This 73-nucleotide RNA sequence from Pseudoscardovia suis belongs to the Rfam family "tRNA". Pairs were carried over by alignment from the consensus structure, which is taken from published work.
RNA sequence: GGGCGAUUGGCGCAGCGGCUAGCGCACUUCCCUGACACGGAAGGGGUCACAAGUUCGAUUCUUGUAUCGCCCA
Numbered sequence: 001g002g003g004c005g006a007u008u009g010g011c012g013c014a015g016c017g018g019c020u021a022g023c024g025c026a027c028u029u030c031c032c033u034g035a036c037a038c039g040g041a042a043g044g045g046g047u048c049a050c051a052a053g054u055u056c057g058a059u060u061c062u063u064g065u066a067u068c069g070c071c072c073a
Stems, first nucleotide, its partner, number of pairs: 001072007010025004027043005049065005